The family of this 102-nucleotide sequence from Siphonobacter sp. SORGH_AS_0500 is "SAM riboswitch aptamer (S box leader)". The source organism's lineage runs through Bacteria, Pseudomonadati, Bacteroidota, Cytophagia and Siphonobacter. A search with the family's covariance model found it, with a score of 71 bits.
RNA sequence: GGCUUAUAAAGAAAGGUGGAGAGACAGGCUCUUUGAAUCCUUAGCAACUUUCCUGAACGGAAUCAGUGCUAACCUGCCUAACAUUUUUAGGAACUAUAAACC
Number, nucleotide and partner (000 for none) at each position: 001g102002g101003c000004u099005u098006a097007u096008a095009a000010a000011g000012a000013a042014a041015g040016g039017u000018g000019g000020a000021g031022a030023g029024a000025c076026a075027g074028g073029c023030u022031c021032u000033u000034u000035g000036a000037a000038u000039c016040c015041u014042u013043a070044g069045c068046a067047a000048c066049u065050u062051u061052c060053c059054u000055g000056a000057a000058c000059g053060g052061a051062a050063u000064c000065a049066g048067u046068g045069c044070u043071a000072a000073c028074c027075u026076g025077c091078c090079u089080a088081a087082c000083a000084u000085u000086u000087u081088u080089a079090g078091g077092a000093a000094c000095u008096a007097u006098a005099a004100a000101c002102c001